[Rfam]
Nucleotides: 068
Base pairs, nucleotide, nucleotide: 011051012050013049014048015047016046027039028038029037030036055067057065058064
Number, partner (000 for none) and nucleotide at each position: 001000g002000g003000a004000u005000a006000a007000g008000u009000g010000u011051c012050u013049u014048c015047u016046a017000c018000u019000a020000a021000a022000a023000c024000c025000g026000c027039c028038c029037g030036c031000g032000u033000c034000c035000u036030g037029u038028g039027g040000a041000c042000a043000a044000c045000a046016u047015a048014g049013a050012a051011g052000u053000c054000a055067g056000c057065a058064c059000a060000u061000c062000c063000u064058g065057u066000a067055c068000c